The record is a 69-nucleotide RNA from Lampropedia hyalina, which matches "ilvH RNA" in Rfam. It is annotated as a cis-regulatory element. The match comes from Rfam's covariance-model search (75 bits).
RNA sequence: GAUGAAUCAAUUGCCUGCCAAGCCCCGGUAUUACCGUGCCGGUGGGGAGGGCAGCGAAAAGAGGAGUUA
Numbered sequence: 001g002a003u004g005a006a007u008c009a010a011u012u013g014c015c016u017g018c019c020a021a022g023c024c025c026c027g028g029u030a031u032u033a034c035c036g037u038g039c040c041g042g043u044g045g046g047g048a049g050g051g052c053a054g055c056g057a058a059a060a061g062a063g064g065a066g067u068u069a
Stems, first nucleotide, its partner, number of pairs: 011057003015054005023045002025042007